[Rfam]
Rfam assigns this 225-nucleotide RNA from Ensete ventricosum to the family "Small nucleolar RNA Z112".
The organism belongs to Ensete, within Eukaryota.
Clan: SNORD49 clan.
A reference for the family is Liang et al. (2002), "A novel gene organization: intronic snoRNA gene clusters from Oryza sativa", Nucleic Acids Res.

RNA sequence: UGCCCAAUGAGGAAGUAAUGACCUUGAUAGGAAGUGCCGUAUGACACUUAUAGCACCAGUUUUCCCUCAUAGUCCUUUCCUGUUUCUUUUCUCUUGCUGCUACCCUCCUCAAAUACUUUUAUAGGUUUGUGUUUUGAGGGUUCUCCAAAAGAAAGAAAUAUGGAGUUCGUAGGACUUGUGGUUCAGCUGUGUGUGUGUGUGAUUUUAAACGGGUCACUGAGGGCU
Numbered sequence: 001u002g003c004c005c006a007a008u009g010a011g012g013a014a015g016u017a018a019u020g021a022c023c024u025u026g027a028u029a030g031g032a033a034g035u036g037c038c039g040u041a042u043g044a045c046a047c048u049u050a051u052a053g054c055a056c057c058a059g060u061u062u063u064c065c066c067u068c069a070u071a072g073u074c075c076u077u078u079c080c081u082g083u084u085u086c087u088u089u090u091c092u093c094u095u096g097c098u099g100c101u102a103c104c105c106u107c108c109u110c111a112a113a114u115a116c117u118u119u120u121a122u123a124g125g126u127u128u129g130u131g132u133u134u135u136g137a138g139g140g141u142u143c144u145c146c147a148a149a150a151g152a153a154a155g156a157a158a159u160a161u162g163g164a165g166u167u168c169g170u171a172g173g174a175c176u177u178g179u180g181g182u183u184c185a186g187c188u189g190u191g192u193g194u195g196u197g198u199g200u201g202a203u204u205u206u207a208a209a210c211g212g213g214u215c216a217c218u219g220a221g222g223g224c225u
Stems, first nucleotide, its partner, number of pairs: 002224004071176006078164003083158005089153004